[Rfam]
The record is a 72-nucleotide RNA from Solanum lycopersicum, which matches "Small nucleolar RNA Z105" in Rfam.
RNA sequence: CGAGCAUAAUGAUGAUUCAAAUUAUUUUCCGAUUAGUUCAUGAAUGGAAUACCAACCUCCUACUCAUUCUGA
Numbered sequence: 001c002g003a004g005c006a007u008a009a010u011g012a013u014g015a016u017u018c019a020a021a022u023u024a025u026u027u028u029c030c031g032a033u034u035a036g037u038u039c040a041u042g043a044a045u046g047g048a049a050u051a052c053c054a055a056c057c058u059c060c061u062a063c064u065c066a067u068u069c070u071g072a
Base pairs, nucleotide, nucleotide: 006067007066009064025048026047029042

Source information:
By type it is a C/D-box small nucleolar RNA. NCBI's taxonomy places the organism under Eukaryota, Streptophytina, Solanoideae, Solaneae, Solanum subgen. Lycopersicon. It scores 59 bits against the family's covariance model.